[Rfam]
Nucleotides: 140
Base pairs, nucleotide, nucleotide: 003061004060005059006058007057016055018053019048020047021046023044024043025041027039028038029037065129066128067127069125070124071123074119075118081109082108083107084106085105
Number, partner (000 for none) and nucleotide at each position: 001000c002000u003061c004060a005059c006058u007057g008000u009000u010000a011000c012000a013000g014000u015000g016055u017000c018053u019048g020047c021046a022000c023044c024043c025041a026000g027039c028038a029037g030000c031000c032000u033000u034000c035000u036000c037029c038028u039027g040000g041025u042000g043024g044023g045000a046021u047020g048019u049000u050000c051000c052000a053018a054000a055016a056000a057007c058006a059005g060004u061003g062000c063000u064000g065129c066128a067127g068000u069125a070124g071123u072000g073000c074119a075118g076000u077000g078000u079000u080000u081109g082108g083107c084106a085105u086000c087000c088000u089000u090000g091000g092000u093000u094000u095000u096000c097000a098000u099000u100000u101000u102000g103000c104000u105085g106084u107083g108082u109081c110000u111000a112000u113000u114000a115000a116000a117000c118075c119074u120000u121000g122000u123071a124070c125069u126000u127067u128066u129065g130000c131000u132000g133000a134000a135000a136000c137000a138000g139000u140000u
Record summary: Rfam assigns this 140-nucleotide sequence from Ptilonorhynchus violaceus to the family "Small nucleolar RNA SNORA8". About the family: ACA8 is a member of the H/ACA class of snoRNA that guide the sites of modification of uridines to pseudouridines. Gene Ontology terms of the family: nucleolus and RNA processing. The match comes from Rfam's covariance-model search (72 bits). It is annotated as an H/ACA-box small nucleolar RNA.